[Rfam]
RNA sequence: CAAUGAAGGAAGCAUGGUAAUGUGCACAUAAAUUAAAUUGGGUCUCUAGGCUUGUCCUCUUUGAUGCCAUUUGGCUUUGAUUUGAGGGUCUGGUUCUGCAACAAAAAU
Numbered sequence: 001c002a003a004u005g006a007a008g009g010a011a012g013c014a015u016g017g018u019a020a021u022g023u024g025c026a027c028a029u030a031a032a033u034u035a036a037a038u039u040g041g042g043u044c045u046c047u048a049g050g051c052u053u054g055u056c057c058u059c060u061u062u063g064a065u066g067c068c069a070u071u072u073g074g075c076u077u078u079g080a081u082u083u084g085a086g087g088g089u090c091u092g093g094u095u096c097u098g099c100a101a102c103a104a105a106a107a108u
Stems, first nucleotide, its partner, number of pairs: 012025004040091005050081001052079001054075003
Dot-bracket structure: ...........((((......))))..............(((((.....(.(.(((................)))...).).....))))).................
Shown here is a 108-nucleotide RNA sequence from Rhododendron simsii, a member of the family "Small nucleolar RNA snoR100". By type it is an H/ACA-box small nucleolar RNA. Rfam 15.1 lists 1,851 matches to the family in 220 species. Its family is annotated with RNA processing and nucleolus in the Gene Ontology. It scores 92 bits against the family's covariance model.